[Rfam]
RNA sequence: GCCAGAUCAUCGCUGAAUUCCCAUAUUGGGAAACGGGGGAACCAUUCGAAGCCGUACAUCGGCUUCACGGGGUGAAUCCUUCUCUCGCACUGCCGGGACCGAAGGACGGGCACUCUCAAGCCCGAAUCCGUCAGCUAACCUCGUAAGCGCAUUGGGAGAGAUC
Numbered sequence: 001g002c003c004a005g006a007u008c009a010u011c012g013c014u015g016a017a018u019u020c021c022c023a024u025a026u027u028g029g030g031a032a033a034c035g036g037g038g039g040a041a042c043c044a045u046u047c048g049a050a051g052c053c054g055u056a057c058a059u060c061g062g063c064u065u066c067a068c069g070g071g072g073u074g075a076a077u078c079c080u081u082c083u084c085u086c087g088c089a090c091u092g093c094c095g096g097g098a099c100c101g102a103a104g105g106a107c108g109g110g111c112a113c114u115c116u117c118a119a120g121c122c123c124g125a126a127u128c129c130g131u132c133a134g135c136u137a138a139c140c141u142c143g144u145a146a147g148c149g150c151a152u153u154g155g156g157a158g159a160g161a162u163c
Stems, first nucleotide, its partner, number of pairs: 011149004018032003033144006043069001070129003078105004108123004
A member of the RNA family "c-di-AMP riboswitch aptamer (ydaO/yuaA leader)" from Cohnella zeiphila, 163 nucleotides long.
Rfam's curators write: This family represents a conserved RNA structure found upstream of the ydaO and yuaA genes in Bacillus subtilis and related genes in other bacteria.
The match comes from Rfam's covariance-model search (89 bits).
The base pairs follow the family's consensus structure.
Taxonomically the source falls in Cohnella (Bacteria, Bacilli, Caryophanales, Paenibacillaceae).